[Rfam]
RNA: small nucleolar RNA snoR143
RNA sequence: UUGCACUUAAAUCAUAGGCCUCUCUAUGUUUAUGUAGUGCGGCCUGAACUAGGUGCAUAAAGCAAGGCAGAUUUGUCAGCGCUCAGCUAAACUGUGAGGAUGGAUCCACCGGUGAAUGGUCUUAUGUGCUAUUUACCUACUAAUUCCGUCAUACAUUU
Numbered sequence: 001u002u003g004c005a006c007u008u009a010a011a012u013c014a015u016a017g018g019c020c021u022c023u024c025u026a027u028g029u030u031u032a033u034g035u036a037g038u039g040c041g042g043c044c045u046g047a048a049c050u051a052g053g054u055g056c057a058u059a060a061a062g063c064a065a066g067g068c069a070g071a072u073u074u075g076u077c078a079g080c081g082c083u084c085a086g087c088u089a090a091a092c093u094g095u096g097a098g099g100a101u102g103g104a105u106c107c108a109c110c111g112g113u114g115a116a117u118g119g120u121c122u123u124a125u126g127u128g129c130u131a132u133u134u135a136c137c138u139a140c141u142a143a144u145u146c147c148g149u150c151a152u153a154c155a156u157u158u
Stems, first nucleotide, its partner, number of pairs: 002057005012047002016045005022039001024037003097152001099150006114134006